Description:
Shown here is a 66-nucleotide RNA, a member of the family "Pestivirus 3' UTR SLIII P. scrofae Atypical porcine pestivirus". Pairs were carried over by alignment from the consensus structure. The family's RNA type in Rfam is small RNA.
RNA sequence: AAAGGGGCAAGUGGCCGUAUAGGCUGGGGCGAUCGCCGUACCCCCCCUUUACCAGGCGCCUCAACC
Numbered sequence: 001a002a003a004g005g006g007g008c009a010a011g012u013g014g015c016c017g018u019a020u021a022g023g024c025u026g027g028g029g030c031g032a033u034c035g036c037c038g039u040a041c042c043c044c045c046c047c048u049u050u051a052c053c054a055g056g057c058g059c060c061u062c063a064a065c066c
Base pairs, nucleotide, nucleotide: 003061004060005059007057008056011052012051013050014049022044023043026042027041028037029036030035